[Rfam]
RNA sequence: AUAACGGCGACAUUUAUACCGUAGACAGUAGGUGCUUUUCAAAGCUUAAUAUCCUACCGAGGUAUAGGAUGAUCGAAAGCCUGUUUUGACAUGCUUGAAAUCAUGCUUGAACACCUCCAUGUCUACUGACUUGGAGGUUUUCUUUUGCCGGU
Numbered sequence: 001a002u003a004a005c006g007g008c009g010a011c012a013u014u015u016a017u018a019c020c021g022u023a024g025a026c027a028g029u030a031g032g033u034g035c036u037u038u039u040c041a042a043a044g045c046u047u048a049a050u051a052u053c054c055u056a057c058c059g060a061g062g063u064a065u066a067g068g069a070u071g072a073u074c075g076a077a078a079g080c081c082u083g084u085u086u087u088g089a090c091a092u093g094c095u096u097g098a099a100a101u102c103a104u105g106c107u108u109g110a111a112c113a114c115c116u117c118c119a120u121g122u123c124u125a126c127u128g129a130c131u132u133g134g135a136g137g138u139u140u141u142c143u144u145u146u147g148c149c150g151g152u
Stems, first nucleotide, its partner, number of pairs: 028057005034045003114137006121130003